[Rfam]
Background
Rfam assigns this 52-nucleotide RNA from Lipotes vexillifer to the family "mir-1302 microRNA precursor family". It scores 62 bits against the family's covariance model.
RNA sequence: UUUUAAGUAUGAGUAUGUUCCAUGCAAUAUUUGGGACAUACUUAUUCUUUAA
Numbered sequence: 001u002u003u004u005a006a007g008u009a010u011g012a013g014u015a016u017g018u019u020c021c022a023u024g025c026a027a028u029a030u031u032u033g034g035g036a037c038a039u040a041c042u043u044a045u046u047c048u049u050u051a052a
Stems, first nucleotide, its partner, number of pairs: 006048002009045004014040003018036004022031001